[Rfam]
Description
This 69-nucleotide RNA from Oryza barthii belongs to the Rfam family "MIR531 microRNA precursor family". The family's consensus secondary structure was predicted with RNAalifold. A search with the family's covariance model found it, with a score of 80 bits.
RNA sequence: UCGAGCUUUGCUUGCCGGGGCUGCGUACCGCCAUAUCUGGCGCGCAUCCCCGUCGAGCAACGCUCGACG
Numbered sequence: 001u002c003g004a005g006c007u008u009u010g011c012u013u014g015c016c017g018g019g020g021c022u023g024c025g026u027a028c029c030g031c032c033a034u035a036u037c038u039g040g041c042g043c044g045c046a047u048c049c050c051c052g053u054c055g056a057g058c059a060a061c062g063c064u065c066g067a068c069g
Stems, first nucleotide, its partner, number of pairs: 002066005009059006016052005022046005028040002030037001